The family of this 74-nucleotide RNA from Paraburkholderia caballeronis is "Fluoride riboswitch aptamer (crcB RNA motif)". On this family, see Baker et al., Science 2012: "Widespread genetic switches and toxicity resistance proteins for fluoride".
RNA sequence: ACGUCUUCCGGAGAUGGCAUUCCUCCCGUAACCGCCGCACGCUCGCCGUCGCGGCUGAUGAUGCCUACGAGUUC
Dot-bracket structure: .........[[[[..((((((.]]]].......((((..............))))....)))))).........
Numbered sequence: 001a002c003g004u005c006u007u008c009c010g011g012a013g014a015u016g017g018c019a020u021u022c023c024u025c026c027c028g029u030a031a032c033c034g035c036c037g038c039a040c041g042c043u044c045g046c047c048g049u050c051g052c053g054g055c056u057g058a059u060g061a062u063g064c065c066u067a068c069g070a071g072u073u074c
Stems, first nucleotide, its partner, number of pairs: 010026004016065006034055004
The family's consensus secondary structure is taken from published work.